Description
Rfam assigns this 100-nucleotide RNA from Proteiniclasticum aestuarii to the family "Purine riboswitch aptamer".

[Rfam]
RNA sequence: AAUUUAAAAAUAACAGUUACUCGUAUAAGCCUCUGAUAUGGAGGGGCGUUUCUACCGGAAGCCAAAGCAAUUUCCGCCUAUGAGUGACAAGGUGCUCUUU
Numbered sequence: 001a002a003u004u005u006a007a008a009a010a011u012a013a014c015a016g017u018u019a020c021u022c023g024u025a026u027a028a029g030c031c032u033c034u035g036a037u038a039u040g041g042a043g044g045g046g047c048g049u050u051u052c053u054a055c056c057g058g059a060a061g062c063c064a065a066a067g068c069a070a071u072u073u074c075c076g077c078c079u080a081u082g083a084g085u086g087a088c089a090a091g092g093u094g095c096u097c098u099u100u
Base pairs, nucleotide, nucleotide: 018086019085020084021083022082023081024080025079029047030046031045032044033043034042056076057075058074059073060072061071
It scores 56 bits against the family's covariance model. The family's consensus secondary structure is taken from published work.